SAM riboswitch aptamer (S box leader): a 113-nucleotide RNA sequence from Flavobacterium sp. AG291. A search with the family's covariance model found it, with a score of 74 bits. The base pairs follow the family's consensus structure, which is taken from published work.

RNA sequence: UUCUUAUCCAGAAAGACCGAGGGAAUUGACCCUAUGACGUCUUGGCAACCUGUUCGCAAUCGUGCGUAUAAGGUGCCACAUUCAACCGUUGCCUGGCAGCGGAAAGAUAAGCU
Numbered sequence: 001u002u003c004u005u006a007u008c009c010a011g012a013a014a015g016a017c018c019g020a021g022g023g024a025a026u027u028g029a030c031c032c033u034a035u036g037a038c039g040u041c042u043u044g045g046c047a048a049c050c051u052g053u054u055c056g057c058a059a060u061c062g063u064g065c066g067u068a069u070a071a072g073g074u075g076c077c078a079c080a081u082u083c084a085a086c087c088g089u090u091g092c093c094u095g096g097c098a099g100c101g102g103a104a105a106g107a108u109a110a111g112c113u
Base pairs, nucleotide, nucleotide: 003111004110005109006108007107008106013043014042015041016040017039021032022031023030026085027084028083029082044077045076046075047074049073050072054066081105086102087101088100089099090098091097
On this family, see Grundy and Henkin, Mol Microbiol 1998: "The S box regulon: a new global transcription termination control system for methionine and cysteine biosynthesis genes in gram-positive bacteria".